The family of this 213-nucleotide RNA sequence from Brassica oleracea is "Plant small nucleolar RNA U3".

RNA sequence: ACGACCUUACUUGAACAUGAUCUAUUCCACGGUAAGUACCUCUGUAUCCUUGAUUUCUAAGGAGACAUGCUCGUAACCCUGGUUGAUGAUUCAUGACCGUACGGUUUGAGUGUGAUUAACGGUUACGAUUGUCUUCGGACUCUCCGCGCAGAGGAUCGCUACCUAGUCUGGUCUUCACCUAGCUAGGGUGGUCGUACGGUUGUCUGACAUGUC
Numbered sequence: 001a002c003g004a005c006c007u008u009a010c011u012u013g014a015a016c017a018u019g020a021u022c023u024a025u026u027c028c029a030c031g032g033u034a035a036g037u038a039c040c041u042c043u044g045u046a047u048c049c050u051u052g053a054u055u056u057c058u059a060a061g062g063a064g065a066c067a068u069g070c071u072c073g074u075a076a077c078c079c080u081g082g083u084u085g086a087u088g089a090u091u092c093a094u095g096a097c098c099g100u101a102c103g104g105u106u107u108g109a110g111u112g113u114g115a116u117u118a119a120c121g122g123u124u125a126c127g128a129u130u131g132u133c134u135u136c137g138g139a140c141u142c143u144c145c146g147c148g149c150a151g152a153g154g155a156u157c158g159c160u161a162c163c164u165a166g167u168c169u170g171g172u173c174u175u176c177a178c179c180u181a182g183c184u185a186g187g188g189u190g191g192u193c194g195u196a197c198g199g200u201u202g203u204c205u206g207a208c209a210u211g212u213c
Base pairs, nucleotide, nucleotide: 001037002036005032006031013027014026015025017023043067044066045065047063048062049061050060051059052058078211080209081208096200097199098198099197100196101195102194103193104192105191106190109160110159111158112157120148121147127144128143131140132139133138162187163186164185165184166183167182170179171178
The family is grouped with related families in Rfam's "U3 clan". The match comes from Rfam's covariance-model search (131 bits). The family's RNA type in Rfam is C/D-box small nucleolar RNA. The base pairs follow the family's consensus structure, which is taken from published work. Lineage of the source: Eukaryota > Embryophyta > Euphyllophyta > Pentapetalae > Brassica oleracea.